[Rfam]
RNA sequence: UGAGACCCCACGGUGGCCGCGGCCGAUUCGGCUGAGGAACUUCCGGGCUCCACAGAGCACGAUGGCGGAUAACAUCCGCCCAGGGUGACCUGAGAGAUAGCGCAACAGAGAACAGACCGCCCGCCUCAUGCGGGUAAGGGUGAAACGGCGGUGCAAGAGACCACCGGACCGCUGGUGACAGUGGUCGCAUGGCAAGCCUCAUCGGGAGCAAGGCCAAGCAGAAGACGUCAAGGGUUGCUCGCCCAGUCUUCGGGUAGGCUGCUAGAGCCUGGCGGCAACGUCAGGUCGAGAUGGAUGGCCAUCCGUGUGGAAACACACGACAGAACCCGGGGUAUGUGGGGUCUCAUCCA
Numbered sequence: 001u002g003a004g005a006c007c008c009c010a011c012g013g014u015g016g017c018c019g020c021g022g023c024c025g026a027u028u029c030g031g032c033u034g035a036g037g038a039a040c041u042u043c044c045g046g047g048c049u050c051c052a053c054a055g056a057g058c059a060c061g062a063u064g065g066c067g068g069a070u071a072a073c074a075u076c077c078g079c080c081c082a083g084g085g086u087g088a089c090c091u092g093a094g095a096g097a098u099a100g101c102g103c104a105a106c107a108g109a110g111a112a113c114a115g116a117c118c119g120c121c122c123g124c125c126u127c128a129u130g131c132g133g134g135u136a137a138g139g140g141u142g143a144a145a146c147g148g149c150g151g152u153g154c155a156a157g158a159g160a161c162c163a164c165c166g167g168a169c170c171g172c173u174g175g176u177g178a179c180a181g182u183g184g185u186c187g188c189a190u191g192g193c194a195a196g197c198c199u200c201a202u203c204g205g206g207a208g209c210a211a212g213g214c215c216a217a218g219c220a221g222a223a224g225a226c227g228u229c230a231a232g233g234g235u236u237g238c239u240c241g242c243c244c245a246g247u248c249u250u251c252g253g254g255u256a257g258g259c260u261g262c263u264a265g266a267g268c269c270u271g272g273c274g275g276c277a278a279c280g281u282c283a284g285g286u287c288g289a290g291a292u293g294g295a296u297g298g299c300c301a302u303c304c305g306u307g308u309g310g311a312a313a314c315a316c317a318c319g320a321c322a323g324a325a326c327c328c329g330g331g332g333u334a335u336g337u338g339g340g341g342u343c344u345c346a347u348c349c350a
Base pairs, nucleotide, nucleotide: 001346002345003344004343005342006341007340008339009338010337012303013302014301015300016299017298018297020034021033022032023031024030025029039333040332041331043330044329045328046327047326048208049207050206051205055240056239057238058237060204061203062202063201064200065079066078067077068076069075080094081092082091083090084089095199096198100197101196102193103192117139118138119135120134121133122132123131124130147165148164150162151161152160166188167186168185169184170183171182172181173180174179212260213259214258215257221251222250223249224248225247226246232244233243234242235241267286268285269284270283271282272281273280274279